[Rfam]
RNA: Bacterial RNase P class B
Organism: Oceanobacillus piezotolerans
RNA sequence: AUACUCAUGUAAUCGCUGUGUACGAUACGUAUGCAGAGGAAAGUCCAUGCUCACACAAACUGAGAUGUUUGUAGUGUUCGUGCUUGAUGAAUUCAUAAGUCAAGGUAGCAAAAUUUUGCUAACGGCAGGAUUUGCUCCUAAGUUUGUUCGCAGAUAUGGAGCAAAACCUUGAAAGUGCCACAGUGACGUAGCUAAGUUGGAAACAACUUAGGUGGAACGAGGUAAACCCCACGAGUGAGCAACCCAAAUAAUGGUAGGGGCAUCCUUUAGUAGAGAAAUGAAUCGAACGAGGGACAAGUCUUUUUGGCUUGUAGAUAGAUGAUUGCAGCCGGAGUACGAGGUUGACCGCCGUUUGCAGUACGAGGGUACAGAACAUGGCUUAUCGAG
Numbered sequence: 001a002u003a004c005u006c007a008u009g010u011a012a013u014c015g016c017u018g019u020g021u022a023c024g025a026u027a028c029g030u031a032u033g034c035a036g037a038g039g040a041a042a043g044u045c046c047a048u049g050c051u052c053a054c055a056c057a058a059a060c061u062g063a064g065a066u067g068u069u070u071g072u073a074g075u076g077u078u079c080g081u082g083c084u085u086g087a088u089g090a091a092u093u094c095a096u097a098a099g100u101c102a103a104g105g106u107a108g109c110a111a112a113a114u115u116u117u118g119c120u121a122a123c124g125g126c127a128g129g130a131u132u133u134g135c136u137c138c139u140a141a142g143u144u145u146g147u148u149c150g151c152a153g154a155u156a157u158g159g160a161g162c163a164a165a166a167c168c169u170u171g172a173a174a175g176u177g178c179c180a181c182a183g184u185g186a187c188g189u190a191g192c193u194a195a196g197u198u199g200g201a202a203a204c205a206a207c208u209u210a211g212g213u214g215g216a217a218c219g220a221g222g223u224a225a226a227c228c229c230c231a232c233g234a235g236u237g238a239g240c241a242a243c244c245c246a247a248a249u250a251a252u253g254g255u256a257g258g259g260g261c262a263u264c265c266u267u268u269a270g271u272a273g274a275g276a277a278a279u280g281a282a283u284c285g286a287a288c289g290a291g292g293g294a295c296a297a298g299u300c301u302u303u304u305u306g307g308c309u310u311g312u313a314g315a316u317a318g319a320u321g322a323u324u325g326c327a328g329c330c331g332g333a334g335u336a337c338g339a340g341g342u343u344g345a346c347c348g349c350c351g352u353u354u355g356c357a358g359u360a361c362g363a364g365g366g367u368a369c370a371g372a373a374c375a376u377g378g379c380u381u382a383u384c385g386a387g
Stems, first nucleotide, its partner, number of pairs: 004387003007383001008327007016036006041381003045378005050239005055072006078234005083104006105123001106121006124229002127169003135161004142155005175227002177223003192211008243259003263293005294312006329366002334361004